Rfam assigns this 97-nucleotide RNA sequence from Stutzerimonas nosocomialis to the family "SAH (S-adenosyl-L-homocysteine) riboswitch aptamer".

Nucleotides: 097
Stems, first nucleotide, its partner, number of pairs: 002058007021045004
Number, partner (000 for none) and nucleotide at each position: 001000c002058u003057g004056u005055c006054c007053g008052a009000g010000g011000g012000g013000c014000g015000c016000u017000g018000c019000a020000g021045c022044a023043g024042g025000c026000a027000c028000c029000c030000g031000c032000u033000u034000a035000u036000g037000g038000u039000u040000g041000a042024c043023c044022u045021g046000u047000c048000a049000g050000g051000c052008u053007c054006g055005g056004a057003u058002g059000g060000g061000g062000c063000g064000u065000u066000u067000u068000c069000a070000a071000g072000a073000a074000a075000c076000g077000c078000a079000u080000c081000a082000a083000c084000g085000g086000c087000g088000c089000c090000c091000a092000g093000c094000g095000g096000a097000c
The literature on the family includes a 2008 paper in Mol Cell by Wang et al., "Riboswitches that sense S-adenosylhomocysteine and activate genes involved in coenzyme recycling". NCBI's taxonomy places the organism under Bacteria, Pseudomonadota, Gammaproteobacteria, Pseudomonadales, Stutzerimonas.